[Rfam]
RNA sequence: GGCAGAUUGCCCGAGCGGCCAAUGGGAGCAGACUGUAAAUCUGUCGGUGAAAGCCUACGUAGGUUCGAAUCCUACAUCUGCCA
Numbered sequence: 001g002g003c004a005g006a007u008u009g010c011c012c013g014a015g016c017g018g019c020c021a022a023u024g025g026g027a028g029c030a031g032a033c034u035g036u037a038a039a040u041c042u043g044u045c046g047g048u049g050a051a052a053g054c055c056u057a058c059g060u061a062g063g064u065u066c067g068a069a070u071c072c073u074a075c076a077u078c079u080g081c082c083a
Base pairs, nucleotide, nucleotide: 001082002081003080004079005078006077007076010026011025012024013023028044029043030042031041032040059075060074061073062072063071

tRNA: an 83-nucleotide RNA sequence from Nocardia asteroides. The base pairs follow the family's consensus structure, which is taken from published work. Taxonomically the source falls in Nocardia asteroides (Bacteria, Actinomycetes, Mycobacteriales, Nocardiaceae). A search with the family's covariance model found it, with a score of 54 bits. Rfam links the family to the GO term triplet codon-amino acid adaptor activity. It is annotated as a transfer RNA.